[Rfam]
RNA: Small Cajal body specific RNA 21
Organism: Phyllostomus discolor
RNA sequence: UGGCUCCGUUUCCUGGAGGGUGGGCUUAGCCUGACCCACCCUCCCUCAGACGAGCUUAGAGUAGAGAGGCCAGGCUUCCUUCCCUGUGGGAGAGGUGGUUAAGAGAGGAGCCUCACCUGGACUGUCCUCGCCUCACAUUU
Numbered sequence: 001u002g003g004c005u006c007c008g009u010u011u012c013c014u015g016g017a018g019g020g021u022g023g024g025c026u027u028a029g030c031c032u033g034a035c036c037c038a039c040c041c042u043c044c045c046u047c048a049g050a051c052g053a054g055c056u057u058a059g060a061g062u063a064g065a066g067a068g069g070c071c072a073g074g075c076u077u078c079c080u081u082c083c084c085u086g087u088g089g090g091a092g093a094g095g096u097g098g099u100u101a102a103g104a105g106a107g108g109a110g111c112c113u114c115a116c117c118u119g120g121a122c123u124g125u126c127c128u129c130g131c132c133u134c135a136c137a138u139u140u
Stems, first nucleotide, its partner, number of pairs: 002056005015044010066134005072128003079120002088113003